[Rfam]
RNA sequence: AUUUGUGUCUUACCAGGCAAGUUUAGAUGUUGAUACUGUGUCUAAUACUGCCUGGUAAUGCCAUCAAU
Number, nucleotide and partner (000 for none) at each position: 001a000002u067003u066004u000005g064006u063007g062008u000009c060010u058011u057012a056013c055014c054015a053016g052017g051018c050019a049020a000021g000022u000023u045024u044025a043026g042027a041028u000029g000030u000031u000032g000033a000034u000035a000036c000037u000038g000039u000040g000041u027042c026043u025044a024045a023046u000047a000048c000049u019050g018051c017052c016053u015054g014055g013056u012057a011058a010059u000060g009061c000062c007063a006064u005065c000066a003067a002068u000
mir-8/mir-141/mir-200 microRNA precursor family: a 68-nucleotide RNA sequence from Danio rerio. Gene Ontology terms of the family: RISC complex and miRNA-mediated post-transcriptional gene silencing. On this family, see Lagos-Quintana et al., Science 2001: "Identification of novel genes coding for small expressed RNAs". NCBI's taxonomy places the organism under Eukaryota, Actinopteri, Teleostei, Clupeocephala, Danio.